Shown here is a 73-nucleotide RNA sequence from Couchioplanes caeruleus, a member of the family "6C RNA". Rfam links the family to the GO term sporulation. On this family, see Weinberg et al., Nucleic Acids Res 2007: "Identification of 22 candidate structured RNAs in bacteria using the CMfinder comparative genomics pipeline". Rfam classes the family as a cis-regulatory element. The family's consensus secondary structure is taken from published work.
RNA sequence: GCCGAUUCGGCUCGACCCCCCCGGAGCCGAAUCUUCGGACGGCCCCCGUCGCCCCCGACGGGGGUCGUUCUUA
Numbered sequence: 001g002c003c004g005a006u007u008c009g010g011c012u013c014g015a016c017c018c019c020c021c022c023g024g025a026g027c028c029g030a031a032u033c034u035u036c037g038g039a040c041g042g043c044c045c046c047c048g049u050c051g052c053c054c055c056c057g058a059c060g061g062g063g064g065u066c067g068u069u070c071u072u073a
Base pairs, nucleotide, nucleotide: 002037004033005032006031007030008029009028010027011026012025013024038069039068040067041066042065043064044063045062046061047060048059049058050057